[Rfam]
RNA sequence: GUCGGACGGGGUCUACGCCCGCCUGUGGCCCAAGUGGGGACCUACGAAUCGAAGGGAGCAUGGGACUUCCAGGCUGGCAUUUUCCGCAAAGUCGCUCACUGGGCGGCUUGCCAGAGCUUAGCAUUGCACGUGGCAGUGGGGUGUCCAAUUGGAGUCUGGUGUUGGCAUUGGCGCGCUGGCGUAAGCCUGGGCGUGCUCAAGGCCAUUGAAUAGCUGGGUAUUGCGUGAGGCUGGCAACAGAGCAACGAAAACCGGCAGCACUGGUUCAGUCAAUGGACGGCAUCUCGCUCGUCUCUGCCUCUGGAUAUGGAGGCCAGCCGACCAUGCGACCUUCUUUUUGUUU
Numbered sequence: 001g002u003c004g005g006a007c008g009g010g011g012u013c014u015a016c017g018c019c020c021g022c023c024u025g026u027g028g029c030c031c032a033a034g035u036g037g038g039g040a041c042c043u044a045c046g047a048a049u050c051g052a053a054g055g056g057a058g059c060a061u062g063g064g065a066c067u068u069c070c071a072g073g074c075u076g077g078c079a080u081u082u083u084c085c086g087c088a089a090a091g092u093c094g095c096u097c098a099c100u101g102g103g104c105g106g107c108u109u110g111c112c113a114g115a116g117c118u119u120a121g122c123a124u125u126g127c128a129c130g131u132g133g134c135a136g137u138g139g140g141g142u143g144u145c146c147a148a149u150u151g152g153a154g155u156c157u158g159g160u161g162u163u164g165g166c167a168u169u170g171g172c173g174c175g176c177u178g179g180c181g182u183a184a185g186c187c188u189g190g191g192c193g194u195g196c197u198c199a200a201g202g203c204c205a206u207u208g209a210a211u212a213g214c215u216g217g218g219u220a221u222u223g224c225g226u227g228a229g230g231c232u233g234g235c236a237a238c239a240g241a242g243c244a245a246c247g248a249a250a251a252c253c254g255g256c257a258g259c260a261c262u263g264g265u266u267c268a269g270u271c272a273a274u275g276g277a278c279g280g281c282a283u284c285u286c287g288c289u290c291g292u293c294u295c296u297g298c299c300u301c302u303g304g305a306u307a308u309g310g311a312g313g314c315c316a317g318c319c320g321a322c323c324a325u326g327c328g329a330c331c332u333u334c335u336u337u338u339u340g341u342u343u
Stems, first nucleotide, its partner, number of pairs: 001041003004024002007021004029038003044341005051334003055331001058327006070320001072319007081311003137287008145276002148274005154267001156264007163205004168200004172193003178187003206212001213256005222249001224247003231240003
Rfam assigns this 343-nucleotide sequence from Coemansia thaxteri to the family "Metazoan signal recognition particle RNA". Taxonomically the source falls in Coemansia (Eukaryota, Opisthokonta, Fungi, Kickxellales). Rfam classes the family as a non-coding RNA gene. Its family is annotated with signal recognition particle, endoplasmic reticulum targeting and SRP-dependent cotranslational protein targeting to membrane, signal sequence recognition in the Gene Ontology. The literature on the family includes a 2001 paper in J Mol Biol by Batey et al., "Structural and energetic analysis of RNA recognition by a universally conserved protein from the signal recognition particle".